[Rfam]
RNA sequence: GGCGGGCUGGCCGGUUCGACAGGCGUAACUAUUCCCCGGGGCCUUAGUCAUUCCACAGGGAGCUGUCCCUGCCCUUGCCCGUGGGCUCGGGCACACGGCGCCCACCUACUUUGUAGGUUCCCGGGAUCGACUUCGACCAUCGGCCGGCUGGCUCGCCA
Numbered sequence: 001g002g003c004g005g006g007c008u009g010g011c012c013g014g015u016u017c018g019a020c021a022g023g024c025g026u027a028a029c030u031a032u033u034c035c036c037c038g039g040g041g042c043c044u045u046a047g048u049c050a051u052u053c054c055a056c057a058g059g060g061a062g063c064u065g066u067c068c069c070u071g072c073c074c075u076u077g078c079c080c081g082u083g084g085g086c087u088c089g090g091g092c093a094c095a096c097g098g099c100g101c102c103c104a105c106c107u108a109c110u111u112u113g114u115a116g117g118u119u120c121c122c123g124g125g126a127u128c129g130a131c132u133u134c135g136a137c138c139a140u141c142g143g144c145c146g147g148c149u150g151g152c153u154c155g156c157c158a
Stems, first nucleotide, its partner, number of pairs: 002156014017142003033126004038121006058103003062099005071092004077086003